About this RNA: Rfam assigns this 56-nucleotide sequence from Lachnospiraceae bacterium MD308 to the family "S4-Clostridia ribosomal protein leader". NCBI's taxonomy places the organism under Bacteria, Bacillati, Clostridia, Lachnospirales, Lachnospiraceae. Clan: Ribosomal Protein S4 Leader clan. The family's consensus secondary structure is taken from published work. On this family, see Eckert and Weinberg, BMC Microbiol 2020: "Discovery of 20 novel ribosomal leader candidates in bacteria and archaea".
RNA sequence: GAAAGGAUACGGGUAUACCGAACCGUAUCUGGACGAAAUCAGUAGUCCCUAUUAAA
Numbered sequence: 001g002a003a004a005g006g007a008u009a010c011g012g013g014u015a016u017a018c019c020g021a022a023c024c025g026u027a028u029c030u031g032g033a034c035g036a037a038a039u040c041a042g043u044a045g046u047c048c049c050u051a052u053u054a055a056a
Base pairs, nucleotide, nucleotide: 005030006029007028008027009026010025011024012023031048032047033046034045
The family's RNA type in Rfam is cis-regulatory leader.